[Rfam]
RNA: Microsporidia small subunit ribosomal RNA, nucleotides 490 to 837
RNA sequence: CAGUUAAAACGUCCGUAGUCGGCCCGGGCGCGCUGUGAGGAAACCGCGGGGCCCAAGGCGGCGGGCAGCACGGGAGCGGGGGCGACAGGAACGGACAACGGCCGCGGGAUCCGGGGGCGAGAGGUGAAAAUCGGGGACCCCGCGGGGACGGGCGGAAGCGAAGGCGGCGGCCGGGGACGUGUCCGUUGAUCAAGGACGAAGGCCGGAGGAUCAAAGAUGAUUAGAUACCGUCGUAGUUCCGGCAGUAAACGAUGCCGACGGGGCGAGGCCAGGGGGCUGUGUCCGGGAGAAAUUGGAGUGUUUGGGCUCUGGGGAUAGUACGGUCGCAAGACAGAAACUUAAAGAAAU
Numbered sequence: 001c002a003g004u005u006a007a008a009a010c011g012u013c014c015g016u017a018g019u020c021g022g023c024c025c026g027g028g029c030g031c032g033c034u035g036u037g038a039g040g041a042a043a044c045c046g047c048g049g050g051g052c053c054c055a056a057g058g059c060g061g062c063g064g065g066c067a068g069c070a071c072g073g074g075a076g077c078g079g080g081g082g083c084g085a086c087a088g089g090a091a092c093g094g095a096c097a098a099c100g101g102c103c104g105c106g107g108g109a110u111c112c113g114g115g116g117g118c119g120a121g122a123g124g125u126g127a128a129a130a131u132c133g134g135g136g137a138c139c140c141c142g143c144g145g146g147g148a149c150g151g152g153c154g155g156a157a158g159c160g161a162a163g164g165c166g167g168c169g170g171c172c173g174g175g176g177a178c179g180u181g182u183c184c185g186u187u188g189a190u191c192a193a194g195g196a197c198g199a200a201g202g203c204c205g206g207a208g209g210a211u212c213a214a215a216g217a218u219g220a221u222u223a224g225a226u227a228c229c230g231u232c233g234u235a236g237u238u239c240c241g242g243c244a245g246u247a248a249a250c251g252a253u254g255c256c257g258a259c260g261g262g263g264c265g266a267g268g269c270c271a272g273g274g275g276g277c278u279g280u281g282u283c284c285g286g287g288a289g290a291a292a293u294u295g296g297a298g299u300g301u302u303u304g305g306g307c308u309c310u311g312g313g314g315a316u317a318g319u320a321c322g323g324u325c326g327c328a329a330g331a332c333a334g335a336a337a338c339u340u341a342a343a344g345a346a347a348u
Base pairs, nucleotide, nucleotide: 001311002310003309011197012196013195014194018190019189020188088184089183090182091180092179093178096175099173100172101171102170103169104168105167107149110146111145112144113143115141116140117139121132122131158165159164202243203242204241205240206239207238212236216232217231218230219229254307255306256305258299259298261284262283263282264281265280267278268277269276270275287294288293313340314339323332324331325330